[Rfam]
RNA sequence: AAGCAACACUCUAUGGCAGAUGAUCAAAACUGCUGACACAAUUUGAGCUUGUUACAAUAGAGUCUAACCAAUUUGGGUGCUCUCUCCUCUUUGAAACAAGCCAUUGUAUAGACUUAGUAUU
Dot-bracket structure: ........((((.((.(((.((........))))).)).)....)))............(((((((....((...(((....(.((......)).)...)))...)).)))))))......
Numbered sequence: 001a002a003g004c005a006a007c008a009c010u011c012u013a014u015g016g017c018a019g020a021u022g023a024u025c026a027a028a029a030c031u032g033c034u035g036a037c038a039c040a041a042u043u044u045g046a047g048c049u050u051g052u053u054a055c056a057a058u059a060g061a062g063u064c065u066a067a068c069c070a071a072u073u074u075g076g077g078u079g080c081u082c083u084c085u086c087c088u089c090u091u092u093g094a095a096a097c098a099a100g101c102c103a104u105u106g107u108a109u110a111g112a113c114u115u116a117g118u119a120u121u
Stems, first nucleotide, its partner, number of pairs: 009047003012040001014038002017035003021032002060115007071107002076102003083096001085094002